[Rfam]
RNA sequence: UUUCCUAAAGAUUAAGCCAUGCAUGCCUAAGACUAUGAGGAAGCAAUUCUCUCUGAAUCUGCGAACGGCUCCGCAAACCAGUUGUAAACCAUAGCAGCGUUCCGCCCGGCUUCAGCAAUGGGGCCGGGCAUUAUAUGGAUAACCGUGGUAAUUCUGAGGCUAAUACAUGACACACUAACCCGUCGGGCUGGGGGCAACCUCGGCUUGGUGGGGGACGUGCGAUAAACACCGGCUACAAUUAAAAAUACCGCGAAAAGGACGCACGUUCAGACCGCCAUCCAAACGGGGGAGGGGGCUUCGGCUUCGGAACCCGGGCGGCCCCUGCAACGGGCUUCUGACCUAUCAACUAGACGGCAGCGUAAGGGACAUGCUAUGGUAACAACGGGUACAGAGGAUUAGGGUUCGAUCCUGGAGAGUGGGCCUGAGAGAUUGCUCAUACUUCUAAGGAAGGCAGCAGGCGCGCAACGUUCCCCUUGGGCAAAGCUCGAGGGCGUUAUGGGAAAUAUGAAUGCUUGCCUUUACGGUGGGCAAUUCAAAUGGGUUUGUCGUAAACAGGCUCUCGAGUAACAA
Dot-bracket structure: .(((((((((.....(((.(((..((...(((.........((.........))...)))))......(((.......(((..((...(....((((....................................((((.....((.(((.....))).))......))))...(.(((..((...))..))).)....(((((........((.(...........................................(((....))).....).)).......)))))..........(.((.((((...)))))).)...))))...).))..))).(((....(((..(.(((((.........).)))).))))......)))..(((.((((....))))....)))))).((((((..........)))))).((((....))))...)))))).).....(.(((...(((((...))))).)))).)).))))))....(((((((((((.....)))))))).)))......(...(((.......)))...).........
The family of this 570-nucleotide part of an RNA is "Eukaryotic small subunit ribosomal RNA". The sequence is in the family's curated seed alignment. For this family Rfam cites "The comparative RNA web (CRW) site: an online database of comparative sequence and structure information for ribosomal, intron, and other RNAs" (Cannone et al., BMC Bioinformatics, 2002). Gene Ontology terms of the family: ribosome and structural constituent of ribosome. Clan: SSU clan.